[Rfam]
RNA sequence: GCCCAAAGUUUUUUGUCAGGACGUUCUAUCAGUUACAUUUAUGUGACGCCUCAAUAUGGUCUGUCUGUUACAACUUUGGAAGAUUAACUACCACCGCCUGCCGUUUAGUUUCCGUUCUGGGGUCUUUUGGCAAUUAGUUCUAAUCUCGUUUUGAGAAUUGAACGCUUAGGUGUGUUCAGGGAUCUUAUGAGUUGAAUUUUUUUUCUCUUCUUCUGAAGUGGAUCAUAAGGAUAUUCGUAGUAAAGAACCCUACAUUU
Numbered sequence: 001g002c003c004c005a006a007a008g009u010u011u012u013u014u015g016u017c018a019g020g021a022c023g024u025u026c027u028a029u030c031a032g033u034u035a036c037a038u039u040u041a042u043g044u045g046a047c048g049c050c051u052c053a054a055u056a057u058g059g060u061c062u063g064u065c066u067g068u069u070a071c072a073a074c075u076u077u078g079g080a081a082g083a084u085u086a087a088c089u090a091c092c093a094c095c096g097c098c099u100g101c102c103g104u105u106u107a108g109u110u111u112c113c114g115u116u117c118u119g120g121g122g123u124c125u126u127u128u129g130g131c132a133a134u135u136a137g138u139u140c141u142a143a144u145c146u147c148g149u150u151u152u153g154a155g156a157a158u159u160g161a162a163c164g165c166u167u168a169g170g171u172g173u174g175u176u177c178a179g180g181g182a183u184c185u186u187a188u189g190a191g192u193u194g195a196a197u198u199u200u201u202u203u204u205c206u207c208u209u210c211u212u213c214u215g216a217a218g219u220g221g222a223u224c225a226u227a228a229g230g231a232u233a234u235u236c237g238u239a240g241u242a243a244a245g246a247a248c249c250c251u252a253c254a255u256u257u
Base pairs, nucleotide, nucleotide: 003079004078005077006076007075019066020065021064022063023062026059027058028057032047033046034045035044036043090176092174093173094172099132100131101130102129103128107125108124110122111121112120113119137163138162139161140160142158144156145155146154147153148152178251179250180249181248183246184245185244186243193237194236195235196234197233200229202228203227206220208218209217210215